[Rfam]
RNA sequence: GGAGUCGGCCAGGCAGUCGCUCUCCGGUCGCGGACCUGUCCGCACGGGGGGAGGAAAGUCCGGGCUCCACAGGGCAGGGUGCCAGGUAACGCCUGGGGGGCGCGAGCCUACGGAAAGUGCCACAGAAAAGACACCGCCUACCCCGCGCGAGCGGGCGGCAAGGGUGAAAAGGUGCGGUAAGAGCGCACCGCGCCGGUGGCAACACGCGGCGGCAGGGUAAACCCCACCCGGAGCAAGACCAAAUAGGGGAGCAUGCGGUCCACGGACCGCGGCCCGCGGCCCGCGGGUGCUUCCGGGUAGGUCGCUCGAGGCCCACGGUGACGUGGGUCCCAGAUGAAUGACUGUCCGCGACAGAACCCGGCUUAUCGGCCGACUCCCAUU
Numbered sequence: 001g002g003a004g005u006c007g008g009c010c011a012g013g014c015a016g017u018c019g020c021u022c023u024c025c026g027g028u029c030g031c032g033g034a035c036c037u038g039u040c041c042g043c044a045c046g047g048g049g050g051g052a053g054g055a056a057a058g059u060c061c062g063g064g065c066u067c068c069a070c071a072g073g074g075c076a077g078g079g080u081g082c083c084a085g086g087u088a089a090c091g092c093c094u095g096g097g098g099g100g101c102g103c104g105a106g107c108c109u110a111c112g113g114a115a116a117g118u119g120c121c122a123c124a125g126a127a128a129a130g131a132c133a134c135c136g137c138c139u140a141c142c143c144c145g146c147g148c149g150a151g152c153g154g155g156c157g158g159c160a161a162g163g164g165u166g167a168a169a170a171g172g173u174g175c176g177g178u179a180a181g182a183g184c185g186c187a188c189c190g191c192g193c194c195g196g197u198g199g200c201a202a203c204a205c206g207c208g209g210c211g212g213c214a215g216g217g218u219a220a221a222c223c224c225c226a227c228c229c230g231g232a233g234c235a236a237g238a239c240c241a242a243a244u245a246g247g248g249g250a251g252c253a254u255g256c257g258g259u260c261c262a263c264g265g266a267c268c269g270c271g272g273c274c275c276g277c278g279g280c281c282c283g284c285g286g287g288u289g290c291u292u293c294c295g296g297g298u299a300g301g302u303c304g305c306u307c308g309a310g311g312c313c314c315a316c317g318g319u320g321a322c323g324u325g326g327g328u329c330c331c332a333g334a335u336g337a338a339u340g341a342c343u344g345u346c347c348g349c350g351a352c353a354g355a356a357c358c359c360g361g362c363u364u365a366u367c368g369g370c371c372g373a374c375u376c377c378c379a380u381u
Stems, first nucleotide, its partner, number of pairs: 001377010011366001012346007020051007056364003060361005065233004072282004077229005082096005097111001098109004112224002117222002119218003134163002136159003142155005171189006190213001191211005196205003237303004247294006273287005310329008
Rfam assigns this 381-nucleotide sequence from Thiohalocapsa marina to the family "Bacterial RNase P class A". It is annotated as a ribozyme. It scores 312 bits against the family's covariance model.